[Rfam]
RNA sequence: ACUAUCGUGAGGUAGCGGGGAGAGGAAGGGAUAGCGAAAUCAUGGCUCUAUGAACAGAAACGUGAUAUGAAGGCGUAUAUAGCGGAUGAGGGGGCUAUAAACUCUAAAGUCCAAAUAGGUAGUCGUAACCUAUAUACGUAAAUCACGAGAGUAAACGAGGAAAGAUGUCCG
Numbered sequence: 001a002c003u004a005u006c007g008u009g010a011g012g013u014a015g016c017g018g019g020g021a022g023a024g025g026a027a028g029g030g031a032u033a034g035c036g037a038a039a040u041c042a043u044g045g046c047u048c049u050a051u052g053a054a055c056a057g058a059a060a061c062g063u064g065a066u067a068u069g070a071a072g073g074c075g076u077a078u079a080u081a082g083c084g085g086a087u088g089a090g091g092g093g094g095c096u097a098u099a100a101a102c103u104c105u106a107a108a109g110u111c112c113a114a115a116u117a118g119g120u121a122g123u124c125g126u127a128a129c130c131u132a133u134a135u136a137c138g139u140a141a142a143u144c145a146c147g148a149g150a151g152u153a154a155a156c157g158a159g160g161a162a163a164g165a166u167g168u169c170c171g
Base pairs, nucleotide, nucleotide: 002015003014004013005012006011029170030169031168032167035164040158041157043155045152046151047150048149049148061147062146063145064144065143066142073139074138075137077135078134079133080132081131082130084112085111086110087109090105091104092103093102
Dot-bracket structure: .(((((....))))).............((((..(....((.(.(((((...........((((((......(((.((((((.((((..((((........))))...)))).................)))))).)))..)))))))))))..).)).....)..)))).